[Rfam]
RNA sequence: UCUUCCUCAACAACAAGUUCUGUGUCACAACGAUCCCUUCCUCUCAAUGCUCCUUCGGGACAUAGGAUGUGCUAGGUUGAUUGUUGUGAACGUCUCGACUAUUCCUGCGGAGAUAUUAUCGCACUUCCAUUAAUGUCCAACCCAGUCGACAGAACUGAGAUUGACCCGAGACCUUUUCACGCCCUCUGGGCAAGGCUGGCCUUGAGCUCGCCUCUCUGAGGCUGAACUCGGCCGGCUGAAAGUGGUGUGUAGGGAGACGUCUUAUUCCCAAGCUUAGUGUUGAUCCUCGUCGAGGAAUGAUCACUGGGCAAAACCAAGGCUAUUGUCUACAUCC
Numbered sequence: 001u002c003u004u005c006c007u008c009a010a011c012a013a014c015a016a017g018u019u020c021u022g023u024g025u026c027a028c029a030a031c032g033a034u035c036c037c038u039u040c041c042u043c044u045c046a047a048u049g050c051u052c053c054u055u056c057g058g059g060a061c062a063u064a065g066g067a068u069g070u071g072c073u074a075g076g077u078u079g080a081u082u083g084u085u086g087u088g089a090a091c092g093u094c095u096c097g098a099c100u101a102u103u104c105c106u107g108c109g110g111a112g113a114u115a116u117u118a119u120c121g122c123a124c125u126u127c128c129a130u131u132a133a134u135g136u137c138c139a140a141c142c143c144a145g146u147c148g149a150c151a152g153a154a155c156u157g158a159g160a161u162u163g164a165c166c167c168g169a170g171a172c173c174u175u176u177u178c179a180c181g182c183c184c185u186c187u188g189g190g191c192a193a194g195g196c197u198g199g200c201c202u203u204g205a206g207c208u209c210g211c212c213u214c215u216c217u218g219a220g221g222c223u224g225a226a227c228u229c230g231g232c233c234g235g236c237u238g239a240a241a242g243u244g245g246u247g248u249g250u251a252g253g254g255a256g257a258c259g260u261c262u263u264a265u266u267c268c269c270a271a272g273c274u275u276a277g278u279g280u281u282g283a284u285c286c287u288c289g290u291c292g293a294g295g296a297a298u299g300a301u302c303a304c305u306g307g308g309c310a311a312a313a314c315c316a317a318g319g320c321u322a323u324u325g326u327c328u329a330c331a332u333c334c
Stems, first nucleotide, its partner, number of pairs: 016156008024091002027087004032082004036076003040071001041069001044066002047063002051060003099148001101146003109137002112134001114132001176251001178249001182247001183245002186242002198233004204229003208225002210222005256327003259320005272309005279301001285295004

The record is a 334-nucleotide RNA sequence from Knufia peltigerae, which matches "A. fumigatus sRNA Afu_309" in Rfam. The source organism's lineage runs through Eukaryota, Opisthokonta, saccharomyceta, leotiomyceta and Knufia. The family's RNA type in Rfam is small RNA.